RNA sequence: AGCUGUAGAGAUAAAAACACAGUCCCGGUUGGUAGUCCGGGCCUGCCAAAGUUAAGGCAGAAGUAACCUUCCCUCCUGGGGUCGUCCAUUCUUUGAUAUUUGAUU
Numbered sequence: 001a002g003c004u005g006u007a008g009a010g011a012u013a014a015a016a017a018c019a020c021a022g023u024c025c026c027g028g029u030u031g032g033u034a035g036u037c038c039g040g041g042c043c044u045g046c047c048a049a050a051g052u053u054a055a056g057g058c059a060g061a062a063g064u065a066a067c068c069u070u071c072c073c074u075c076c077u078g079g080g081g082u083c084g085u086c087c088a089u090u091c092u093u094u095g096a097u098a099u100u101u102g103a104u105u
Stems, first nucleotide, its partner, number of pairs: 006095006022042002025040004043060005071081003
RNA: azaaromatic riboswitch aptamer (yjdF RNA)